Source information: A member of the RNA family "Eukaryotic large subunit ribosomal RNA" from Carlito syrichta, 592 nucleotides of a longer RNA. Lineage of the source: Eukaryota > Amniota > Haplorrhini > Tarsiidae > Carlito.

[Rfam]
RNA sequence: CCCUCCAAAGUUUCCCUCAGGGUAGCUGGUGCUUUUGCACACCCACCAACCCCAUGCAGUUUUAUCAGGUAAAGCGAAUGAUUAGAGGUCUUGGGGCCAAAAUAAUCUCGAUCUCAACCUAUUCUCAAACUUUAAAUGAGUAAGAAGCCCGACUUGCUGACCUGGAGCUGGGAGUGGAAUGCGAGUGCUUAGUGGGCCACUUUUGGUAAGCAGAACUGGCACUGCAGGAUGAACCAAAUGCUGGGUUAAGUCACCCGAUGCCAAUGCUCAUCAAACCCAAGAAAAGGUGUUGGUUGAUAUAGACAGCAGGGCACUGACCAUGGAAGUCGGAAUCUGCUAAGGAGUGUGUAACAACUCACCUGCUGAAUCAACUAGCCCUGAAAAUGGAUGGUACUGGAGCAUCGGGUCCAUACCCAUCUGUUUCCAGCUGUCGGAAGUGAGAGCAGACAGGAGUGGCCCCGGGUGCCAUUGCUGGGGCACCUGGGUGUGAGGAGCCCCCUGCAGAUGCUACACCAUGAUGAGUGGAAGGGCCACUGCGGUGAGACUUGAAGCCUAGGGUGCAGGCCUGGGUGGAGCCACCGCAGGUGCAGAU
Numbered sequence: 001c002c003c004u005c006c007a008a009a010g011u012u013u014c015c016c017u018c019a020g021g022g023u024a025g026c027u028g029g030u031g032c033u034u035u036u037g038c039a040c041a042c043c044c045a046c047c048a049a050c051c052c053c054a055u056g057c058a059g060u061u062u063u064a065u066c067a068g069g070u071a072a073a074g075c076g077a078a079u080g081a082u083u084a085g086a087g088g089u090c091u092u093g094g095g096g097c098c099a100a101a102a103u104a105a106u107c108u109c110g111a112u113c114u115c116a117a118c119c120u121a122u123u124c125u126c127a128a129a130c131u132u133u134a135a136a137u138g139a140g141u142a143a144g145a146a147g148c149c150c151g152a153c154u155u156g157c158u159g160a161c162c163u164g165g166a167g168c169u170g171g172g173a174g175u176g177g178a179a180u181g182c183g184a185g186u187g188c189u190u191a192g193u194g195g196g197c198c199a200c201u202u203u204u205g206g207u208a209a210g211c212a213g214a215a216c217u218g219g220c221a222c223u224g225c226a227g228g229a230u231g232a233a234c235c236a237a238a239u240g241c242u243g244g245g246u247u248a249a250g251u252c253a254c255c256c257g258a259u260g261c262c263a264a265u266g267c268u269c270a271u272c273a274a275a276c277c278c279a280a281g282a283a284a285a286g287g288u289g290u291u292g293g294u295u296g297a298u299a300u301a302g303a304c305a306g307c308a309g310g311g312c313a314c315u316g317a318c319c320a321u322g323g324a325a326g327u328c329g330g331a332a333u334c335u336g337c338u339a340a341g342g343a344g345u346g347u348g349u350a351a352c353a354a355c356u357c358a359c360c361u362g363c364u365g366a367a368u369c370a371a372c373u374a375g376c377c378c379u380g381a382a383a384a385u386g387g388a389u390g391g392u393a394c395u396g397g398a399g400c401a402u403c404g405g406g407u408c409c410a411u412a413c414c415c416a417u418c419u420g421u422u423u424c425c426a427g428c429u430g431u432c433g434g435a436a437g438u439g440a441g442a443g444c445a446g447a448c449a450g451g452a453g454u455g456g457c458c459c460c461g462g463g464u465g466c467c468a469u470u471g472c473u474g475g476g477g478c479a480c481c482u483g484g485g486u487g488u489g490a491g492g493a494g495c496c497c498c499c500u501g502c503a504g505a506u507g508c509u510a511c512a513c514c515a516u517g518a519u520g521a522g523u524g525g526a527a528g529g530g531c532c533a534c535u536g537c538g539g540u541g542a543g544a545c546u547u548g549a550a551g552c553c554u555a556g557g558g559u560g561c562a563g564g565c566c567u568g569g570g571u572g573g574a575g576c577c578a579c580c581g582c583a584g585g586u587g588c589a590g591a592u
Stems, first nucleotide, its partner, number of pairs: 001530004006525001011024001013022003028189006060145006072133001073131002079127003084122001086120003091117006098110001148172004153167003196220004201215005227234001240418001242416003246412001250408001252406001259405001261404001265401003285379003289376010306363005312336002318330002337341001342357001346355002419520004532587001534584008543576001551571002557566003
Dot-bracket structure: ((((.(....(.(((....))).)...((((((..........................((((((......(((....(((..(.(((..((((((.(...........).))))))))).)..)))..)).)......))))))..((((.(((.........))).))))...........))))))......((((.(((((.....))))).))))......(......).....(.(((.(...(.(......(.(...(((.................(((.((((((((((.......(((((.((....((.........))....))(...)(...((......)).).)))))...)))))))))))))...................)))..))).)...).))).)((((..............................................................................................))))....).)))).(.((((((((.(.......((....(((....)))...))....)))))))))..).....